The family of this 97-nucleotide RNA sequence is "S10-Clostridia ribosomal protein leader". The family's RNA type in Rfam is cis-regulatory leader.
RNA sequence: AUAGAGUGUUGAGUCGAAAGGUUGCCGAAAACCUUAAAAAUCAAGGGUUUCGGGUUUUUUCGAGGAGCGAUGUCCAGUUCAUGAAACCGGACGGCAA
Dot-bracket structure: .............(((.((((...(((((...................)))))..).)))))).......((((..((((........)))))))).